Source information:
Rfam assigns this 123-nucleotide RNA from Nostoc sp. T09 to the family "c-di-AMP riboswitch aptamer (ydaO/yuaA leader)".

RNA sequence: AAUUCAAAUUCGGCAAAUUUUGGAUUUGAAGCGGAGGAACCAAUGUUUGGGGCUAAUCUUUAUGAGAGACACCUUCCAGUCUUAGCCCGUCAGCUAACUCCGUCGGCAGUGGAAGGAACCGCC
Number, nucleotide and partner (000 for none) at each position: 001a000002a000003u000004u000005c000006a000007a000008a000009u000010u000011c000012g107013g000014c105015a000016a000017a000018u030019u029020u028021u000022g000023g000024a000025u000026u000027u000028g020029a019030a018031g103032c102033g101034g100035a099036g098037g000038a000039a000040c000041c049042a048043a000044u000045g000046u000047u000048u042049g041050g088051g087052g086053c000054u000055a000056a000057u000058c064059u000060u000061u000062a000063u000064g058065a000066g000067a082068g081069a080070c079071a000072c000073c000074u000075u000076c000077c000078a000079g070080u069081c068082u067083u000084a000085g000086c052087c051088c050089g000090u000091c000092a000093g000094c000095u000096a000097a000098c036099u035100c034101c033102g032103u031104c000105g014106g000107c012108a000109g000110u000111g000112g000113a000114a000115g000116g000117a000118a000119c000120c000121g000122c000123c000